Notes: Rfam assigns this 79-nucleotide RNA sequence from Dictyocaulus viviparus to the family "SmY spliceosomal RNA". The family's RNA type in Rfam is spliceosomal small nuclear RNA. The family has 61 seed sequences and 408 matches in Rfam 15.1. NCBI's taxonomy places the organism under Eukaryota, Opisthokonta, Ecdysozoa, Rhabditina, Dictyocaulus.

RNA sequence: UGAGAUCUUGUGUUUCUUGUAGGGCCUUCCAUAAGACCCGCAAACCAAUUUUUGGAAGCCCCAGCAACAUGCUGGGGUU
Numbered sequence: 001u002g003a004g005a006u007c008u009u010g011u012g013u014u015u016c017u018u019g020u021a022g023g024g025c026c027u028u029c030c031a032u033a034a035g036a037c038c039c040g041c042a043a044a045c046c047a048a049u050u051u052u053u054g055g056a057a058g059c060c061c062c063a064g065c066a067a068c069a070u071g072c073u074g075g076g077g078u079u
Stems, first nucleotide, its partner, number of pairs: 022039003026035003058078009
The literature on the family includes a 2006 paper in Genome Res by Deng et al., "Organization of the Caenorhabditis elegans small non-coding transcriptome: genomic features, biogenesis, and expression".